The record is a 79-nucleotide sequence from Anolis carolinensis, which matches "mir-130 microRNA precursor family" in Rfam. NCBI's taxonomy places the organism under Eukaryota, Bilateria, Deuterostomia, Sauria, Anolis. For this family Rfam cites "Identification of tissue-specific microRNAs from mouse" (Lagos-Quintana et al., Curr Biol, 2002). It scores 61 bits against the family's covariance model.

[Rfam]
RNA sequence: UGCUGUCCGGAGCCCUUUUUCUGUUGUACUACUGGCAAGUAUGAGUAGCAGUGCAAUAUUAAAAGGGCAUUGGCUGGCA
Numbered sequence: 001u002g003c004u005g006u007c008c009g010g011a012g013c014c015c016u017u018u019u020u021c022u023g024u025u026g027u028a029c030u031a032c033u034g035g036c037a038a039g040u041a042u043g044a045g046u047a048g049c050a051g052u053g054c055a056a057u058a059u060u061a062a063a064a065g066g067g068c069a070u071u072g073g074c075u076g077g078c079a
Stems, first nucleotide, its partner, number of pairs: 001079003005074001007073004012068008022058009